[Rfam]
Rfam assigns this 81-nucleotide RNA to the family "Fluoride riboswitch aptamer (crcB RNA motif)". Pairs were carried over by alignment from the consensus structure, which is taken from published work. It scores 49 bits against the family's covariance model.
RNA sequence: AGUGAGACGGGGGAUGGCGUCCCCCUGAGGGUUUUCCCUCAAACUGCCUAAACAAUGAGGGCUGAUGACGCCUAUCUCUAC
Numbered sequence: 001a002g003u004g005a006g007a008c009g010g011g012g013g014a015u016g017g018c019g020u021c022c023c024c025c026u027g028a029g030g031g032u033u034u035u036c037c038c039u040c041a042a043a044c045u046g047c048c049u050a051a052a053c054a055a056u057g058a059g060g061g062c063u064g065a066u067g068a069c070g071c072c073u074a075u076c077u078c079u080a081c
Stems, first nucleotide, its partner, number of pairs: 010025004016072006046062004